[Rfam]
RNA sequence: AGCUUUUCGAAUCCGUGCUGAAAUCUCGUCAGACACCAACCCAUUAGGGCUGAUCAGACUUCUAAGAUAAGUGAAGUU
Numbered sequence: 001a002g003c004u005u006u007u008c009g010a011a012u013c014c015g016u017g018c019u020g021a022a023a024u025c026u027c028g029u030c031a032g033a034c035a036c037c038a039a040c041c042c043a044u045u046a047g048g049g050c051u052g053a054u055c056a057g058a059c060u061u062c063u064a065a066g067a068u069a070a071g072u073g074a075a076g077u078u
Base pairs, nucleotide, nucleotide: 002077003076004075005074006073008071011068012067013066017062020061021060024058025057026056028054029053030052
Rfam assigns this 78-nucleotide RNA from Schistosoma mattheei to the family "mir-3492 microRNA precursor family". Gene Ontology terms of the family: miRNA-mediated post-transcriptional gene silencing and RISC complex. The organism belongs to Schistosoma, within Eukaryota.